[Rfam]
RNA sequence: GUUGAGGCUCCAUCUACAAAUGGAUAAUUCUUUAGCGUUAGUCUAGACCUAGUUUAGUAAUAGUAAAAAAUGAGCAAUAUAAGCCUUCUUUAAAGAAGGCUUAUAUUGCUCAUUUU
Numbered sequence: 001g002u003u004g005a006g007g008c009u010c011c012a013u014c015u016a017c018a019a020a021u022g023g024a025u026a027a028u029u030c031u032u033u034a035g036c037g038u039u040a041g042u043c044u045a046g047a048c049c050u051a052g053u054u055u056a057g058u059a060a061u062a063g064u065a066a067a068a069a070a071u072g073a074g075c076a077a078u079a080u081a082a083g084c085c086u087u088c089u090u091u092a093a094a095g096a097a098g099g100c101u102u103a104u105a106u107u108g109c110u111c112a113u114u115u116u
Stems, first nucleotide, its partner, number of pairs: 009024005068115014083100005
The record is a 116-nucleotide RNA sequence from Solms-laubachia eurycarpa, which matches "Plastid-psbA-1 3UTR RNA" in Rfam. The family is grouped with related families in Rfam's "Plastid-psbA 3UTR RNA clan". Pairs were carried over by alignment from the consensus structure, which was predicted with LocARNA. It is annotated as a cis-regulatory element.